c-di-GMP-I riboswitch aptamer: an 87-nucleotide sequence from Paenibacillus nasutitermitis.

RNA sequence: CUCUCGCAUAGGCAAAACUGUCGAAAGGCAGUGACGCAAAGCCACGGAUCUUCUCACUAUCUUAGUGAUGACCGCCGGGUUACCCAA
Dot-bracket structure: ...........((...((((((....))))))...))..((((.(((.((....((((.....))))..))...)))))))......
Pairs were carried over by alignment from the consensus structure, which is taken from published work.
From the family's description: GEMM was predicted in a large-scale screen for bacterial structured RNA regulatory elements.
Lineage of the source: Bacteria > Bacillati > Caryophanales > Paenibacillaceae > Paenibacillus.